[Rfam]
RNA sequence: UAUAGUCUUUGAGGCAAGGUGCGAAAGUGUUACUUUCAAUUCCUGACCGGCGGUAAAAGUCCGCUAACCUCGUCAUGAGGUUGAAUCGAUGCAAUUUCGAUACCGACAGUAUAGUCUGGAUGGGAAAAGACAGCA
Numbered sequence: 001u002a003u004a005g006u007c008u009u010u011g012a013g014g015c016a017a018g019g020u021g022c023g024a025a026a027g028u029g030u031u032a033c034u035u036u037c038a039a040u041u042c043c044u045g046a047c048c049g050g051c052g053g054u055a056a057a058a059g060u061c062c063g064c065u066a067a068c069c070u071c072g073u074c075a076u077g078a079g080g081u082u083g084a085a086u087c088g089a090u091g092c093a094a095u096u097u098c099g100a101u102a103c104c105g106a107c108a109g110u111a112u113a114g115u116c117u118g119g120a121u122g123g124g125a126a127a128a129g130a131c132a133g134c135a
Base pairs, nucleotide, nucleotide: 003133005131006130007129008128009127010126017044018043019042046115047114048105049104050064051063052062053061059103060102067081068080069079085101086100087099088098089097107118108117109116

The record is a 135-nucleotide sequence from Megasphaera paucivorans, which matches "FMN riboswitch aptamer (RFN element)" in Rfam. The family's consensus secondary structure is taken from published work.